[Rfam]
Shown here is a 135-nucleotide RNA sequence from Prolemur simus, a member of the family "Small nucleolar RNA U109". A reference for the family is Gu et al. (2005), "A novel experimental approach for systematic identification of box H/ACA snoRNAs from eukaryotes", Nucleic Acids Res. The organism belongs to Prolemur, within Eukaryota. The family's RNA type in Rfam is H/ACA-box small nucleolar RNA. Rfam 15.1 lists 1,405 matches to the family in 622 species.
RNA sequence: CUGCAUGUGGAGAUGUCUGCUCUUCAUUCCUUUAGGAGCAGGAAUACAUCUAUAACAGGCUGUAUUUAAAAAGGAAUUCUUAGAGCUGCCAAUCUUAUAAUAAAUGUUGAGUAGUAGUAUAUAUCUCCUACAAAA
Numbered sequence: 001c002u003g004c005a006u007g008u009g010g011a012g013a014u015g016u017c018u019g020c021u022c023u024u025c026a027u028u029c030c031u032u033u034a035g036g037a038g039c040a041g042g043a044a045u046a047c048a049u050c051u052a053u054a055a056c057a058g059g060c061u062g063u064a065u066u067u068a069a070a071a072a073g074g075a076a077u078u079c080u081u082a083g084a085g086c087u088g089c090c091a092a093u094c095u096u097a098u099a100a101u102a103a104a105u106g107u108u109g110a111g112u113a114g115u116a117g118u119a120u121a122u123a124u125c126u127c128c129u130a131c132a133a134a135a
Stems, first nucleotide, its partner, number of pairs: 003060002006057003016042008073128003085115002089111001090109004095104002